The record is a 170-nucleotide RNA from Oxytricha trifallax, which matches "Wolbachia sRNA 46" in Rfam. A search with the family's covariance model found it, with a score of 68 bits. The family has 3 seed sequences and 237 matches in Rfam 15.1.

RNA sequence: AUUAGCUGGACUUUACUAUUUGGCGGUACCCCUCUAUCGCAUCCCUGGAGCGAGAAAACUUGACUUUAAUUAAAUACCUCUAAAUUAAUCAAAUUAUACCCUCAUAUUAAAGUCAAGUUAUCUCGCUCCAGGGAUGCGAUAGAGGGGUACCGCAAAAUAGUAAAGUCCAG
Numbered sequence: 001a002u003u004a005g006c007u008g009g010a011c012u013u014u015a016c017u018a019u020u021u022g023g024c025g026g027u028a029c030c031c032c033u034c035u036a037u038c039g040c041a042u043c044c045c046u047g048g049a050g051c052g053a054g055a056a057a058a059c060u061u062g063a064c065u066u067u068a069a070u071u072a073a074a075u076a077c078c079u080c081u082a083a084a085u086u087a088a089u090c091a092a093a094u095u096a097u098a099c100c101c102u103c104a105u106a107u108u109a110a111a112g113u114c115a116a117g118u119u120a121u122c123u124c125g126c127u128c129c130a131g132g133g134a135u136g137c138g139a140u141a142g143a144g145g146g147g148u149a150c151c152g153c154a155a156a157a158u159a160g161u162a163a164a165g166u167c168c169a170g
Stems, first nucleotide, its partner, number of pairs: 011165005024152031